[Rfam]
RNA sequence: UUGCCUGAUGCAGUCAGUGUUUUCUAUUAAAGAACAUGAAUAUAUCUACAGCAUGCUACAUAUAAUGAAUAAGAAGUAGUUUUUAGUGCUGCCGACUUUUUGGUUGCAUUUAUGUGGAAGCAUAUUUCUUCUAUGUUA
Numbered sequence: 001u002u003g004c005c006u007g008a009u010g011c012a013g014u015c016a017g018u019g020u021u022u023u024c025u026a027u028u029a030a031a032g033a034a035c036a037u038g039a040a041u042a043u044a045u046c047u048a049c050a051g052c053a054u055g056c057u058a059c060a061u062a063u064a065a066u067g068a069a070u071a072a073g074a075a076g077u078a079g080u081u082u083u084u085a086g087u088g089c090u091g092c093c094g095a096c097u098u099u100u101u102g103g104u105u106g107c108a109u110u111u112a113u114g115u116g117g118a119a120g121c122a123u124a125u126u127u128c129u130u131c132u133a134u135g136u137u138a
Stems, first nucleotide, its partner, number of pairs: 003056002006053002017037007076131001078129002089117001092114001094111002097108001099106001
Rfam assigns this 138-nucleotide RNA sequence from Otolemur garnettii to the family "Small nucleolar RNA U109". The family's consensus secondary structure was predicted with WAR. It scores 48 bits against the family's covariance model. Rfam classes the family as an H/ACA-box small nucleolar RNA. Gene Ontology terms of the family: RNA processing and nucleolus.